[Rfam]
RNA sequence: AGUCAGAAAUGAGCUUAUUCAUAAAAGUGCAGUAUGGUGAAGUCAAUCUGUAAUUUUAUGUAUAAGCUAGUCUCUGAUUGA
Dot-bracket structure: (((((((.((.(((((((.(((((((.(((((...............))))).))))))).))))))).)).)))))))..
Numbered sequence: 001a002g003u004c005a006g007a008a009a010u011g012a013g014c015u016u017a018u019u020c021a022u023a024a025a026a027g028u029g030c031a032g033u034a035u036g037g038u039g040a041a042g043u044c045a046a047u048c049u050g051u052a053a054u055u056u057u058a059u060g061u062a063u064a065a066g067c068u069a070g071u072c073u074c075u076g077a078u079u080g081a
Stems, first nucleotide, its partner, number of pairs: 001079007009071002012068007020060007028052005
A member of the RNA family "mir-590 microRNA precursor family" from Mus musculus, 81 nucleotides long. The family's consensus secondary structure was predicted with RNAalifold. It is one of the family's seed sequences.